[Rfam]
Overview
Shown here is a 74-nucleotide sequence from Selaginella moellendorffii, a member of the family "tRNA". The family is grouped with related families in Rfam's "tRNA clan". It is annotated as a transfer RNA. The base pairs follow the family's consensus structure, which is taken from published work.
RNA sequence: GGCCUAUUAGCUCAGAUGGUCAGAGCGUGGUGCUAAUAACGCCAAGGUCGCAGGUUCGAAACCUGCAUAGGCCA
Numbered sequence: 001g002g003c004c005u006a007u008u009a010g011c012u013c014a015g016a017u018g019g020u021c022a023g024a025g026c027g028u029g030g031u032g033c034u035a036a037u038a039a040c041g042c043c044a045a046g047g048u049c050g051c052a053g054g055u056u057c058g059a060a061a062c063c064u065g066c067a068u069a070g071g072c073c074a
Stems, first nucleotide, its partner, number of pairs: 001073007010026004028044005050066005